RNA sequence: CGAGAUGUGAUGAACAGGAGAAGUACAAGAAGGUAAUGUCGACAGAGAGGAUGGAAAGGUGAGAGCCAUCCGGCAUGAAAUCUUGGAAGAUGCACCUGGGAGCAAUCGGCUGAACUCCAAUGAGGGUAAGUAGGUCGUAUCGGGUUCCUUCCGUUAACGAGGACAAAAGCGAGGCACUCUUGUGCCUAAGCAGAGUGGAACCGCGGUAGAUAUGGAAACCGUCUCUGCG
Number, nucleotide and partner (000 for none) at each position: 001c000002g000003a000004g000005a000006u000007g103008u102009g000010a000011u000012g000013a000014a000015c098016a097017g096018g095019a000020g000021a000022a000023g000024u000025a000026c085027a084028a083029g082030a081031a000032g000033g000034u000035a000036a000037u000038g074039u073040c072041g000042a000043c000044a000045g000046a000047g000048a000049g071050g070051a069052u068053g067054g066055a000056a000057a000058g000059g000060u000061g000062a000063g000064a000065g000066c054067c053068a052069u051070c050071c049072g040073g039074c038075a000076u000077g000078a000079a000080a000081u030082c029083u028084u027085g026086g000087a000088a000089g000090a000091u000092g000093c000094a000095c018096c017097u016098g015099g000100g000101a000102g008103c007104a000105a000106u000107c137108g136109g135110c134111u133112g000113a000114a000115c000116u000117c000118c000119a000120a000121u000122g000123a000124g000125g000126g000127u000128a000129a000130g000131u000132a000133g111134g110135u109136c108137g107138u000139a000140u000141c153142g152143g151144g000145u000146u000147c000148c000149u000150u000151c143152c142153g141154u000155u000156a000157a000158c000159g000160a000161g000162g000163a000164c000165a000166a000167a000168a000169g000170c000171g000172a187173g186174g185175c184176a183177c182178u000179c000180u000181u000182g177183u176184g175185c174186c173187u172188a000189a000190g000191c000192a226193g225194a224195g223196u000197g000198g000199a000200a000201c000202c000203g222204c221205g220206g219207u218208a000209g000210a000211u000212a000213u000214g000215g000216a000217a000218a207219c206220c205221g204222u203223c195224u194225c193226u192227g000228c000229g000